[Rfam]
Salmonella enterica Typhi npcRNA 44: a 129-nucleotide RNA sequence from Acidovorax sp. CF316.
A reference for the family is Chinni et al. (2010), "Experimental identification and characterization of 97 novel npcRNA candidates in Salmonella enterica serovar Typhi", Nucleic Acids Res.
RNA sequence: CUUUAACAAUCCGGAACAAGCUGAAAAUUGAAACGACGCGUCGUUUUCAUUCUCCGUAAUAAGAAUGAAAUCACGAUGCGUUCGAGUCUCUCAAAUGCUUACAGUCCCGAGCGUUGCAAAACGCCUGUG
Numbered sequence: 001c002u003u004u005a006a007c008a009a010u011c012c013g014g015a016a017c018a019a020g021c022u023g024a025a026a027a028u029u030g031a032a033a034c035g036a037c038g039c040g041u042c043g044u045u046u047u048c049a050u051u052c053u054c055c056g057u058a059a060u061a062a063g064a065a066u067g068a069a070a071u072c073a074c075g076a077u078g079c080g081u082u083c084g085a086g087u088c089u090c091u092c093a094a095a096u097g098c099u100u101a102c103a104g105u106c107c108c109g110a111g112c113g114u115u116g117c118a119a120a121a122c123g124c125c126u127g128u129g
Stems, first nucleotide, its partner, number of pairs: 020102001023100002027096003034084003038079007108127002111124004